[Rfam]
RNA sequence: AUAAUGAUACUUCUUUACCGCCGUAGUCCGAGCGUUAAAAGCGUCGCAGGCAACGGGUAGAGCUGCAUGAGAACCAUGCGGAAGUGAAAUUCUUGUGA
Number, nucleotide and partner (000 for none) at each position: 001a000002u000003a000004a000005u000006g000007a000008u000009a000010c000011u000012u095013c062014u061015u060016u059017a058018c057019c056020g000021c000022c000023g000024u000025a000026g000027u000028c000029c000030g000031a000032g000033c000034g000035u000036u000037a000038a000039a000040a000041g000042c000043g000044u000045c000046g000047c000048a000049g000050g000051c000052a000053a000054c000055g000056g019057g018058u017059a016060g015061a014062g013063c081064u080065g079066c000067a077068u076069g075070a000071g000072a000073a000074c000075c069076a068077u067078g000079c065080g064081g063082a094083a093084g092085u000086g000087a000088a000089a000090u000091u000092c084093u083094u082095g012096u000097g000098a000
RNA: pemK RNA